[Rfam]
RNA sequence: GCGGCCGGAACGCCGAAUCUCCCCUGCGGGGAGAGCCGGGGACCCAGGUAUCUGGGGUGAAUCGACGCACGUCGUAGGGCUACUCCCGGCCCGAACCCGUCAGCUAACCCGGCAGGCGCGCGAGGAGAGGAGAA
Numbered sequence: 001g002c003g004g005c006c007g008g009a010a011c012g013c014c015g016a017a018u019c020u021c022c023c024c025u026g027c028g029g030g031g032a033g034a035g036c037c038g039g040g041g042a043c044c045c046a047g048g049u050a051u052c053u054g055g056g057g058u059g060a061a062u063c064g065a066c067g068c069a070c071g072u073c074g075u076a077g078g079g080c081u082a083c084u085c086c087c088g089g090c091c092c093g094a095a096c097c098c099g100u101c102a103g104c105u106a107a108c109c110c111g112g113c114a115g116g117c118g119c120g121c122g123a124g125g126a127g128a129g130g131a132g133a134a
Stems, first nucleotide, its partner, number of pairs: 011118004018034005035113006045054002055098003063074004077092004

The record is a 134-nucleotide RNA from Actinomadura hallensis, which matches "c-di-AMP riboswitch aptamer (ydaO/yuaA leader)" in Rfam.